Rfam assigns this 106-nucleotide RNA sequence from Prunus persica to the family "MIR6274 microRNA precursor family". Rfam links the family to the GO terms miRNA-mediated post-transcriptional gene silencing and RISC complex. Rfam 15.1 lists 342 matches to the family in 8 species. A search with the family's covariance model found it, with a score of 88 bits. Pairs were carried over by alignment from the consensus structure, which was predicted with RNAalifold.
RNA sequence: GGAUAUCAUUGUUUUGCUAUCCCGGCCAGUAACAUGAUGACACGUAAAAAAGUUAUUCCACGUGUCAUUGUGUUAUUGGCCAAGAAUAGCAAAAAAAUUAUUAUCC
Dot-bracket structure: .((((......((((((((((..((((((((((((((((((((((..((......))..))))))))))))))))))))))..).))))))))).......)))).